Shown here is a 76-nucleotide RNA sequence from Chordeiles acutipennis, a member of the family "mir-1343 microRNA precursor family".
[Rfam]
RNA sequence: UCGGUGUGGGGAUGGGGAAGGGCCCCCGGGGGGGCCUCCGGCCCCCUCUGGGGCCCCUUCCCCAUCCCCACACCGA
Numbered sequence: 001u002c003g004g005u006g007u008g009g010g011g012a013u014g015g016g017g018a019a020g021g022g023c024c025c026c027c028g029g030g031g032g033g034g035c036c037u038c039c040g041g042c043c044c045c046c047u048c049u050g051g052g053g054c055c056c057c058u059u060c061c062c063c064a065u066c067c068c069c070a071c072a073c074c075g076a
Stems, first nucleotide, its partner, number of pairs: 003074007011066002014063004019058004024053007032044005

Gene Ontology terms of the family: miRNA-mediated post-transcriptional gene silencing and RISC complex.